Archaeal large subunit ribosomal RNA: a 357-nucleotide part of an RNA from Candidatus Methanoperedens nitratireducens. Rfam links the family to the GO terms structural constituent of ribosome and ribosome.

[Rfam]
RNA sequence: CGGAUCAAACUGGCUAAGGGAAUUCGGCAAAUUAGCUCCGUAACUUCGGGAGAAGGAGUGCCUGCCUUGAAGAAGGCAGGUCGCAGUGACCAGAGAGCACUGACUGUCUAAUAACAACAUAGCUGACUGCAAAUCCGAAAGGAUGUGUACAGUUGGUGAAUCCUGCCCAGUGCAGGUACCUGAAAGCCCGGUACAACGGGACGAAGGGCCUGUAAACGGCGGGGGUAACUAUAACCCUCUUAAGGUAGCGUAGUACCUUGUCGCUUAAUUGGCGACUUGCAUGAAUGGAUCAACGAGUGCUCUACUGUCCCUAGUCAGAACCCGGUGAACUUUACAUUCUAGUGCAGAGUCUAGAGA
Dot-bracket structure: (((......(((((((.(((..............(((((....(....).....)))))(((((((((....)))))))))(...).......(((((((((..(((.........)))..(((((((((..((((....))))..)..))))))))..((((.(((..(((((((..(((.....((((......)))).....))))))))..)))))((((((.......))))))(...)...............((((((.....))))))..........))))...)).)))))))....))).)))))))...))).............(((((........)))))..